Nucleotides: 262
Stems, first nucleotide, its partner, number of pairs: 001262004033245001035243003042221005060206004064120006077106004082101001084099001086096001128186001130185006143170006151162001
Number, partner (000 for none) and nucleotide at each position: 001262g002261g003260u004259c005000u006000g007000u008000g009000a010000u011000g012000g013000a014000c015000a016000g017000u018000a019000a020000a021000a022000g023000g024000u025000c026000u027000g028000a029000u030000u031000a032000u033245c034000c035243g036242a037241u038000g039000g040000g041000u042221g043220c044219u045218c046217a047000u048000c049000c050000c051000u052000g053000a054000c055000c056000c057000c058000a059000g060206c061205u062204c063203c064120c065119a066118g067117c068116a069115g070000u071000g072000u073000c074000u075000c076000g077106c078105u079104g080103g081000u082101c083000c084099u085000g086096c087000c088000g089000c090000a091000g092000c093000g094000a095000u096086g097000g098000g099084g100000c101082g102000c103080c104079u105078g106077g107000c108000a109000g110000a111000g112000u113000c114000c115069u116068u117067g118066c119065u120064g121000a122000c123000a124000g125000c126000c127000u128186g129000u130185g131184a132183u133182g134181u135180g136000u137000c138000c139000a140000g141000c142000u143170c144169a145168u146167g147166u148165c149000g150000a151162c152000c153000u154000g155000g156000a157000g158000u159000g160000u161000u162151g163000g164000a165148g166147a167146c168145a169144u170143g171000g172000c173000u174000g175000u176000a177000g178000u179000c180135c181134a182133c183132a184131u185130c186128c187000a188000a189000c190000a191000g192000u193000c194000c195000c196000a197000c198000c199000u200000g201000a202000a203063g204062g205061a206060g207000u208000u209000u210000g211000g212000g213000g214000u215000c216000u217046u218045g219044g220043g221042c222000u223000g224000u225000u226000a227000u228000a229000u230000c231000u232000g233000g234000a235000c236000a237000u238000g239000u240000g241037a242036u243035c244000u245033g246000a247000c248000u249000u250000g251000u252000g253000u254000g255000c256000u257000g258000a259004g260003a261002c262001c